[Rfam]
The record is a 77-nucleotide RNA from Heterocephalus glaber, which matches "mir-1912 microRNA precursor family" in Rfam.
Its family is annotated with miRNA-mediated post-transcriptional gene silencing and RISC complex in the Gene Ontology.
A search with the family's covariance model found it, with a score of 81 bits.
The literature on the family includes a 2010 paper in Genes Dev by Chiang et al., "Mammalian microRNAs: experimental evaluation of novel and previously annotated genes".

RNA sequence: CUCUAGGAUGUGUUCAUUACAUGGGCUGUGUAUAUUUUUAUUCAAUACCCUGAACUAGCAGUGUGAACAUAAUAGAG
Numbered sequence: 001c002u003c004u005a006g007g008a009u010g011u012g013u014u015c016a017u018u019a020c021a022u023g024g025g026c027u028g029u030g031u032a033u034a035u036u037u038u039u040a041u042u043c044a045a046u047a048c049c050c051u052g053a054a055c056u057a058g059c060a061g062u063g064u065g066a067a068c069a070u071a072a073u074a075g076a077g
Stems, first nucleotide, its partner, number of pairs: 001077005008070004013065001015063004020058001023055001026052001028050001030048004